[Rfam]
RNA sequence: UGCCGGCUUUCCAACAGCCGGGGUUACUGAAGAGGCACACCUUCAUUGCCGGAAGUGCGGUCGGGUUCUCCAACCAAUCCAAGGCAGACUAAACGGAUCAUAGCCCCAGCAAGGCGUGGUCCAUGAAUGCAUCAAGCGUUCACACAGCCU
Numbered sequence: 001u002g003c004c005g006g007c008u009u010u011c012c013a014a015c016a017g018c019c020g021g022g023g024u025u026a027c028u029g030a031a032g033a034g035g036c037a038c039a040c041c042u043u044c045a046u047u048g049c050c051g052g053a054a055g056u057g058c059g060g061u062c063g064g065g066u067u068c069u070c071c072a073a074c075c076a077a078u079c080c081a082a083g084g085c086a087g088a089c090u091a092a093a094c095g096g097a098u099c100a101u102a103g104c105c106c107c108a109g110c111a112a113g114g115c116g117u118g119g120u121c122c123a124u125g126a127a128u129g130c131a132u133c134a135a136g137c138g139u140u141c142a143c144a145c146a147g148c149c150u
Stems, first nucleotide, its partner, number of pairs: 001023001003021006034050004057130003084094001103115003
Rfam assigns this 150-nucleotide RNA from Parahoeflea halophila to the family "speF leader". The family's consensus secondary structure was predicted with RNAalifold. About the family: This family is a putative regulatory RNA structure that is found upstream of the speF gene encoding ornithine decarboxylase in Agrobacterium tumefaciens and other alpha-proteobacteria. Its family is annotated with regulation of gene expression in the Gene Ontology. On this family, see Corbino et al., Genome Biol 2005: "Evidence for a second class of S-adenosylmethionine riboswitches and other regulatory RNA motifs in alpha-proteobacteria".